Rfam assigns this 107-nucleotide RNA sequence from Soonwooa buanensis to the family "Flavo-1 RNA". NCBI's taxonomy places the organism under Bacteria, Pseudomonadati, Flavobacteriales, Weeksellaceae, Soonwooa. A search with the family's covariance model found it, with a score of 57 bits. The base pairs follow the family's consensus structure, which is taken from published work.
RNA sequence: UUUUAGCCCCGAUAGAAGCGGCAUCCUUUGGGGCGACGUGAGGCGACGGAGCGUAGCGGAGUCGUCCGAGCGGCGCACAAAAGAUAGAGCGGAUAGCGGGAAAAGCU
Numbered sequence: 001u002u003u004u005a006g007c008c009c010c011g012a013u014a015g016a017a018g019c020g021g022c023a024u025c026c027u028u029u030g031g032g033g034c035g036a037c038g039u040g041a042g043g044c045g046a047c048g049g050a051g052c053g054u055a056g057c058g059g060a061g062u063c064g065u066c067c068g069a070g071c072g073g074c075g076c077a078c079a080a081a082a083g084a085u086a087g088a089g090c091g092g093a094u095a096g097c098g099g100g101a102a103a104a105g106c107u
Base pairs, nucleotide, nucleotide: 009099010098011097013095014094018090019089023085024084025083028080031078033076034075035074